This 351-nucleotide sequence from Anaeromicropila populeti belongs to the Rfam family "Bacterial RNase P class A".
The match comes from Rfam's covariance-model search (308 bits).
Gene Ontology terms of the family: dimeric ribonuclease P complex, tRNA processing and ribonuclease P activity.
The family's RNA type in Rfam is ribozyme.

RNA sequence: UGAGUAACACAGAUGGUCGCGCCUAUUAGUACCGAAAGGUCUUAGGUGAGGAAAGUCCGAGCUUCACAGGGCAGAGUGCCGGAUAACGUCCGGUAGAGGCGACUCUAAGGCUAGUGCAACAGAAAUAAACCGCAGAAGUAUAUUCUGUAAGGGUGGAAAGGUGAGGUAAGAGCUCACCGCCCUGCUGGUAACAGCAGGGGCACAUGUAAACCCCACUUGAAGCAAGACCGAAUUUAAAGCGAUACGGCUGCCCGUCGUGCUUUAGGGUAGGUCGCUUGAGUCUGAUGGUAACAUCAGAACUAGAUAGAUGACCAUUUAAUACAGAACUCGGCUUACAGUGUUGCUCAUUUU
Numbered sequence: 001u002g003a004g005u006a007a008c009a010c011a012g013a014u015g016g017u018c019g020c021g022c023c024u025a026u027u028a029g030u031a032c033c034g035a036a037a038g039g040u041c042u043u044a045g046g047u048g049a050g051g052a053a054a055g056u057c058c059g060a061g062c063u064u065c066a067c068a069g070g071g072c073a074g075a076g077u078g079c080c081g082g083a084u085a086a087c088g089u090c091c092g093g094u095a096g097a098g099g100c101g102a103c104u105c106u107a108a109g110g111c112u113a114g115u116g117c118a119a120c121a122g123a124a125a126u127a128a129a130c131c132g133c134a135g136a137a138g139u140a141u142a143u144u145c146u147g148u149a150a151g152g153g154u155g156g157a158a159a160g161g162u163g164a165g166g167u168a169a170g171a172g173c174u175c176a177c178c179g180c181c182c183u184g185c186u187g188g189u190a191a192c193a194g195c196a197g198g199g200g201c202a203c204a205u206g207u208a209a210a211c212c213c214c215a216c217u218u219g220a221a222g223c224a225a226g227a228c229c230g231a232a233u234u235u236a237a238a239g240c241g242a243u244a245c246g247g248c249u250g251c252c253c254g255u256c257g258u259g260c261u262u263u264a265g266g267g268u269a270g271g272u273c274g275c276u277u278g279a280g281u282c283u284g285a286u287g288g289u290a291a292c293a294u295c296a297g298a299a300c301u302a303g304a305u306a307g308a309u310g311a312c313c314a315u316u317u318a319a320u321a322c323a324g325a326a327c328u329c330g331g332c333u334u335a336c337a338g339u340g341u342u343g344c345u346c347a348u349u350u351u
Stems, first nucleotide, its partner, number of pairs: 001347010012316007020048006028040001053334003057331005062222004069253004074218005079093005094108001095106004109213002114211002116207003130152002132148006160178006179201001180199008226273004235264006244258005281298007